[Rfam]
Notes:
Rfam assigns this 76-nucleotide RNA sequence from Parvimonas sp. oral taxon 393 to the family "dfrA-dnaX RNA". By type it is a small RNA. The organism belongs to Parvimonas sp. oral taxon 393, within Bacteria. The family's consensus secondary structure is taken from published work.
RNA sequence: ACGACCGAUUGUAAAGCUAUAAAUGUCUCAUUAUAAUAAUUUUGAUUUAAUAAUCAAAAUGGAAUUAUAAUAUAAU
Number, nucleotide and partner (000 for none) at each position: 001a000002c000003g000004a000005c000006c000007g000008a000009u000010u000011g000012u000013a000014a000015a000016g000017c000018u000019a000020u000021a000022a000023a000024u000025g000026u000027c000028u000029c000030a071031u070032u069033a068034u067035a066036a065037u064038a000039a000040u000041u000042u000043u000044g000045a000046u000047u000048u000049a000050a000051u000052a000053a000054u000055c000056a000057a000058a000059a000060u000061g000062g000063a000064a037065u036066u035067a034068u033069a032070a031071u030072a000073u000074a000075a000076u000